The record is a 119-nucleotide RNA sequence from Phyllobacterium myrsinacearum, which matches "Alphaproteobacterial ar14" in Rfam. Lineage of the source: Bacteria > Pseudomonadati > Alphaproteobacteria > Hyphomicrobiales > Phyllobacterium. By type it is a small RNA.
[Rfam]
RNA sequence: AGUUGACGUUCGGGAUGACCUCCUCCCAGGUUCCGAACGUUCGAAGGCCGGCACUCCUCCUCCCAGCCGGCCUUUACAAAUAGCACCCACCGCACCUCCUCCCGCGGUGGGUGUUGUUU
Numbered sequence: 001a002g003u004u005g006a007c008g009u010u011c012g013g014g015a016u017g018a019c020c021u022c023c024u025c026c027c028a029g030g031u032u033c034c035g036a037a038c039g040u041u042c043g044a045a046g047g048c049c050g051g052c053a054c055u056c057c058u059c060c061u062c063c064c065a066g067c068c069g070g071c072c073u074u075u076a077c078a079a080a081u082a083g084c085a086c087c088c089a090c091c092g093c094a095c096c097u098c099c100u101c102c103c104g105c106g107g108u109g110g111g112u113g114u115u116g117u118u119u
Base pairs, nucleotide, nucleotide: 007039008038009037011035012034013033014032015031016030043075044074045073046072047071048070049069050068051067052066083114084113085112086111087110088109089108090107091106092105093104
From the family's description: Smr14C2 was renamed NfeR1 (Nodule Formation Efficiency RNA) highly expressed in salt stress and during the symbiotic interaction on legume roots.